[Rfam]
A member of the RNA family "Small nucleolar RNA snR60/Z15/Z230/Z193/J17" from Colletotrichum orchidophilum, 102 nucleotides long. The family is grouped with related families in Rfam's "SNORD77 clan". It is annotated as a C/D-box small nucleolar RNA. It scores 66 bits against the family's covariance model. Pairs were carried over by alignment from the consensus structure. The organism belongs to Colletotrichum, within Eukaryota.
RNA sequence: UUUGGUGUUAUGAUGAUACCCCUAGCACAACGCAUAGUUCAUCUGAAUUCUAUGAUGAAAACUUCCUUAUUUAGUCUUUCGCUCCCAUCUGACUACACCAUU
Numbered sequence: 001u002u003u004g005g006u007g008u009u010a011u012g013a014u015g016a017u018a019c020c021c022c023u024a025g026c027a028c029a030a031c032g033c034a035u036a037g038u039u040c041a042u043c044u045g046a047a048u049u050c051u052a053u054g055a056u057g058a059a060a061a062c063u064u065c066c067u068u069a070u071u072u073a074g075u076c077u078u079u080c081g082c083u084c085c086c087a088u089c090u091g092a093c094u095a096c097a098c099c100a101u102u
Base pairs, nucleotide, nucleotide: 004099005098006097007096008095